[Rfam]
RNA: Cyano-1 RNA
RNA sequence: GUGUGUGUAGGAGGAAUUAAUUUUAAUCAAGUGGAAACUAGGAAACACUUGAUCUAGAUUAAUUUAAAA
Number, nucleotide and partner (000 for none) at each position: 001g000002u000003g000004u000005g000006u000007g000008u000009a000010g000011g000012a000013g000014g065015a064016a063017u062018u061019a060020a000021u000022u057023u056024u000025a000026a000027u052028c051029a050030a000031g048032u047033g046034g000035a000036a000037a000038c000039u000040a000041g000042g000043a000044a000045a000046c033047a032048c031049u000050u029051g028052a027053u000054c000055u000056a023057g022058a000059u000060u019061a018062a017063u016064u015065u014066a000067a000068a000069a000